[Rfam]
RNA sequence: ACCGUUCGCACACCACGUUCGACAGGGGCGGGGGAACCGAUAGCGGGCUCGUUCCACGAGUCCUAGGGGUAAAGACGCGCGUAGACCAGCUUUGGGGCGGUGGUCUGCAGGCAAGGCGUCCGGAUGUCCCAUCCGAACCCGACAGCUAACUUCGCAGGCAUUGGGAAAGGCAACA
Numbered sequence: 001a002c003c004g005u006u007c008g009c010a011c012a013c014c015a016c017g018u019u020c021g022a023c024a025g026g027g028g029c030g031g032g033g034g035a036a037c038c039g040a041u042a043g044c045g046g047g048c049u050c051g052u053u054c055c056a057c058g059a060g061u062c063c064u065a066g067g068g069g070u071a072a073a074g075a076c077g078c079g080c081g082u083a084g085a086c087c088a089g090c091u092u093u094g095g096g097g098c099g100g101u102g103g104u105c106u107g108c109a110g111g112c113a114a115g116g117c118g119u120c121c122g123g124a125u126g127u128c129c130c131a132u133c134c135g136a137a138c139c140c141g142a143c144a145g146c147u148a149a150c151u152u153c154g155c156a157g158g159c160a161u162u163g164g165g166a167a168a169g170g171c172a173a174c175a
Stems, first nucleotide, its partner, number of pairs: 002027002028155006038066001067140003075119004122134004
Dot-bracket structure: .((......................))((((((....(...........................)(((.....((((.....................................))))..((((.....))))...))).........))))))....................
RNA: c-di-AMP riboswitch aptamer (ydaO/yuaA leader)